[Rfam]
RNA sequence: AGCAGAGUGGCAUAGUGGAAGUGUGCUGGGCCCAUAACCCAGAGAUCGAUGGAUCAAUACCAUCCUCUGCUA
Numbered sequence: 001a002g003c004a005g006a007g008u009g010g011c012a013u014a015g016u017g018g019a020a021g022u023g024u025g026c027u028g029g030g031c032c033c034a035u036a037a038c039c040c041a042g043a044g045a046u047c048g049a050u051g052g053a054u055c056a057a058u059a060c061c062a063u064c065c066u067c068u069g070c071u072a
Stems, first nucleotide, its partner, number of pairs: 001071007010024004026042005048064005
RNA: tRNA
Organism: Amphiprion percula